A member of the RNA family "tRNA", 67 nucleotides long.
By type it is a transfer RNA.
Rfam's curators put it in the seed alignment.
[Rfam]
RNA sequence: AUUCCUGUAGUUGAAACAACAAUAACUUUUCAUGUUAUAGGUUUAGGUUGAACCCCUAACAGGAAUC
Numbered sequence: 001a002u003u004c005c006u007g008u009a010g011u012u013g014a015a016a017c018a019a020c021a022a023u024a025a026c027u028u029u030u031c032a033u034g035u036u037a038u039a040g041g042u043u044u045a046g047g048u049u050g051a052a053c054c055c056c057u058a059a060c061a062g063g064a065a066u067c
Stems, first nucleotide, its partner, number of pairs: 001066007010020004022038005043059005